[Rfam]
RNA: rne-II RNA
Organism: Pseudomonas sp. FeS53a
RNA sequence: ACAAGUGUAGGGUGGAGAUGCACAACCGUCGGACUGCGUAGCAGCGCUUCAACCAAGACGUUUUAUUCCGUCCGCUGCCGAUGGCUGAUUCCUCCUCCUGAUAAACGUUGCUUCUGUUACGACAACAGCAGCGGGAGACGUCGUCGCGACCCCGGCCAGAUGGCCUGAUGUCGCUGGACACGGGAGCAUUAACCCGCUCCUGACACGCACCUGACACCGACCGCGAGAGUCGUGUGUGCCGGUCGCCGUUUCCGGUAGCCCCGGAAACCGA
Numbered sequence: 001a002c003a004a005g006u007g008u009a010g011g012g013u014g015g016a017g018a019u020g021c022a023c024a025a026c027c028g029u030c031g032g033a034c035u036g037c038g039u040a041g042c043a044g045c046g047c048u049u050c051a052a053c054c055a056a057g058a059c060g061u062u063u064u065a066u067u068c069c070g071u072c073c074g075c076u077g078c079c080g081a082u083g084g085c086u087g088a089u090u091c092c093u094c095c096u097c098c099u100g101a102u103a104a105a106c107g108u109u110g111c112u113u114c115u116g117u118u119a120c121g122a123c124a125a126c127a128g129c130a131g132c133g134g135g136a137g138a139c140g141u142c143g144u145c146g147c148g149a150c151c152c153c154g155g156c157c158a159g160a161u162g163g164c165c166u167g168a169u170g171u172c173g174c175u176g177g178a179c180a181c182g183g184g185a186g187c188a189u190u191a192a193c194c195c196g197c198u199c200c201u202g203a204c205a206c207g208c209a210c211c212u213g214a215c216a217c218c219g220a221c222c223g224c225g226a227g228a229g230u231c232g233u234g235u236g237u238g239c240c241g242g243u244c245g246c247c248g249u250u251u252c253c254g255g256u257a258g259c260c261c262c263g264g265a266a267a268c269c270g271a
Stems, first nucleotide, its partner, number of pairs: 014095004023087002026084007036075003040048003057072004096136005139207003143179003146174004154165004183200005214237004218232004248268007